Source information:
Shown here is a 77-nucleotide RNA from Crocuta crocuta, a member of the family "Mammalian CPEB3 ribozyme". Rfam links the family to the GO term RNA nuclease activity. Pairs were carried over by alignment from the consensus structure, which is taken from published work. The literature on the family includes a 2006 paper in Science by Salehi-Ashtiani et al., "A genomewide search for ribozymes reveals an HDV-like sequence in the human CPEB3 gene".

Nucleotides: 077
Base pairs, nucleotide, nucleotide: 012045014043015042017040022075023074024073025072026071027039028038029037049066050065051064052063053062055060
Number, partner (000 for none) and nucleotide at each position: 001000c002000a003000a004000g005000g006000a007000c008000c009000g010000u011000a012045g013000a014043g015042g016000a017040u018000a019000a020000c021000a022075c023074a024073g025072a026071a027039g028038u029037g030000u031000u032000c033000a034000c035000a036000u037029c038028g039027u040017g041000g042015c043014c044000c045012c046000u047000g048000u049066c050065a051064g052063a053062u054000g055060c056000c057000g058000g059000u060055g061000a062053a063052u064051c065050u066049g067000u068000g069000g070000a071026u072025u073024c074023u075022g076000c077000u